[Rfam]
RNA sequence: UAUUAAAAUUUUCAUCUAUUUUUAUUGUUAAAAUCAGUGUAGUUGACAGAAUAACCAGACAGUUACAUGUGUUGUGUUAUGUGUAUUUUAUGUUGGCGCACAAGAACUAAUUGUUAAUAAUAGAAAUGGAUGAAUCUUUAACA
Numbered sequence: 001u002a003u004u005a006a007a008a009u010u011u012u013c014a015u016c017u018a019u020u021u022u023u024a025u026u027g028u029u030a031a032a033a034u035c036a037g038u039g040u041a042g043u044u045g046a047c048a049g050a051a052u053a054a055c056c057a058g059a060c061a062g063u064u065a066c067a068u069g070u071g072u073u074g075u076g077u078u079a080u081g082u083g084u085a086u087u088u089u090a091u092g093u094u095g096g097c098g099c100a101c102a103a104g105a106a107c108u109a110a111u112u113g114u115u116a117a118u119a120a121u122a123g124a125a126a127u128g129g130a131u132g133a134a135u136c137u138u139u140a141a142c143a
Base pairs, nucleotide, nucleotide: 003141004140005139006138007137011134012133013132014131015130016129018127019126020125021124022123023122024121025120026119028117029116030115031114033112
Shown here is a 143-nucleotide RNA from Gossypium mustelinum, a member of the family "MIR7502 microRNA precursor family". Rfam links the family to the GO terms RISC complex and miRNA-mediated post-transcriptional gene silencing. Lineage of the source: Eukaryota > Euphyllophyta > Magnoliopsida > eudicotyledons > Gossypium. The family has 6 seed sequences and 74,505 matches in Rfam 15.1. The match comes from Rfam's covariance-model search (89 bits).